[Rfam]
RNA sequence: UAGCGGUCCGGAUCAUCUGAUCGGGAAGCUAGGUGGGGAAACAUCAUGAUUACCAUGAGGAAAUUAACCACC
Numbered sequence: 001u002a003g004c005g006g007u008c009c010g011g012a013u014c015a016u017c018u019g020a021u022c023g024g025g026a027a028g029c030u031a032g033g034u035g036g037g038g039a040a041a042c043a044u045c046a047u048g049a050u051u052a053c054c055a056u057g058a059g060g061a062a063a064u065u066a067a068c069c070a071c072c
Stems, first nucleotide, its partner, number of pairs: 001031004009023003013020002032072005044058005
The family of this 72-nucleotide RNA sequence is "Hairpin ribozyme 1 from viruses-like metatranscriptomes".
Gene Ontology term of the family: RNA nuclease activity.
It is one of the family's seed sequences.